[Rfam]
RNA sequence: AGUCGCUCAUUCAACUUUUUAUGUUGGUCCCAAUUAAUAGAGGGAUGCAUACCACAUAAACCAGGAAUGAUGCCAAAAGUCAGGUGCCUACGGUCCAGCAGCAUGAUAUUUGCUUAUAAACAAGCUUUAUCAAACAUAGGGCGACACGUGGAGUGAGGCACCAUCUA
Numbered sequence: 001a002g003u004c005g006c007u008c009a010u011u012c013a014a015c016u017u018u019u020u021a022u023g024u025u026g027g028u029c030c031c032a033a034u035u036a037a038u039a040g041a042g043g044g045a046u047g048c049a050u051a052c053c054a055c056a057u058a059a060a061c062c063a064g065g066a067a068u069g070a071u072g073c074c075a076a077a078a079g080u081c082a083g084g085u086g087c088c089u090a091c092g093g094u095c096c097a098g099c100a101g102c103a104u105g106a107u108a109u110u111u112g113c114u115u116a117u118a119a120a121c122a123a124g125c126u127u128u129a130u131c132a133a134a135c136a137u138a139g140g141g142c143g144a145c146a147c148g149u150g151g152a153g154u155g156a157g158g159c160a161c162c163a164u165c166u167a
Base pairs, nucleotide, nucleotide: 005073006072007070008069009068010067011066012065019059020058021057022056023055024054026053027052028051083162084161085160086159087158088157089156093142094141095140096139104132105131106130107129108128145155146154147153
The record is a 167-nucleotide RNA from Arsenophonus sp. ENCA, which matches "Glm Y RNA activator of glmS mRNA" in Rfam. Lineage of the source: Bacteria > Pseudomonadota > Gammaproteobacteria > Enterobacterales > Arsenophonus. From the family's description: This family consists of a number of bacterial RNA genes of around 167 bases in length. The tke1 RNA gene is present in Escherichia coli, Shigella flexneri, Yersinia pestis and Salmonella species where it is found between the yfhK and purL genes. The function of this RNA is unknown. The base pairs follow the family's consensus structure, which is taken from published work.